[Rfam]
A. fumigatus sRNA Afu_254: a 146-nucleotide sequence from Paecilomyces variotii.
NCBI's taxonomy places the organism under Eukaryota, Dikarya, leotiomyceta, Eurotiomycetes, Paecilomyces variotii.
The literature on the family includes a 2008 paper in Nucleic Acids Res by Jochl et al., "Small ncRNA transcriptome analysis from Aspergillus fumigatus suggests a novel mechanism for regulation of protein synthesis".
The base pairs follow the family's consensus structure, which was predicted with WAR.
Rfam classes the family as a small RNA.
RNA sequence: UUCAAACAUCUAUCUGCUCAAAUCACAAAGUCUCUCGAGUUAUACCACCCACCACCAAUCAAGAUGAACCCCUGCUCCUGCAACUGCUGCUCUGGAAGCUGCAACUCCUGCAGCUGCUCCUCGUGCAGCGUAAGUACACCUUCAUA
Numbered sequence: 001u002u003c004a005a006a007c008a009u010c011u012a013u014c015u016g017c018u019c020a021a022a023u024c025a026c027a028a029a030g031u032c033u034c035u036c037g038a039g040u041u042a043u044a045c046c047a048c049c050c051a052c053c054a055c056c057a058a059u060c061a062a063g064a065u066g067a068a069c070c071c072c073u074g075c076u077c078c079u080g081c082a083a084c085u086g087c088u089g090c091u092c093u094g095g096a097a098g099c100u101g102c103a104a105c106u107c108c109u110g111c112a113g114c115u116g117c118u119c120c121u122c123g124u125g126c127a128g129c130g131u132a133a134g135u136a137c138a139c140c141u142u143c144a145u146a
Base pairs, nucleotide, nucleotide: 073097075095076094080090081089082088101126102125103124110117111116